[Rfam]
RNA: Small nucleolar RNA SNORD14
Organism: Salvia splendens
Nucleotides: 123
Base pairs, nucleotide, nucleotide: 002122003121004120061087062086063085064084065083066082
Number, partner (000 for none) and nucleotide at each position: 001000g002122g003121g004120c005000g006000a007000u008000g009000a010000u011000g012000c013000c014000a015000a016000a017000c018000u019000g020000c021000a022000a023000g024000g025000c026000u027000u028000g029000u030000u031000u032000c033000u034000c035000a036000a037000a038000a039000c040000a041000u042000u043000c044000g045000c046000a047000g048000u049000g050000g051000c052000c053000g054000c055000c056000u057000a058000a059000g060000u061087g062086c063085u064084u065083u066082c067000g068000c069000c070000u071000u072000c073000g074000c075000c076000a077000g078000g079000c080000u081000u082066g083065a084064g085063a086062g087061c088000a089000u090000a091000u092000g093000c094000u095000g096000c097000u098000u099000u100000u101000u102000c103000c104000u105000u106000c107000c108000u109000u110000g111000g112000a113000u114000g115000u116000c117000u118000g119000a120004g121003c122002c123000g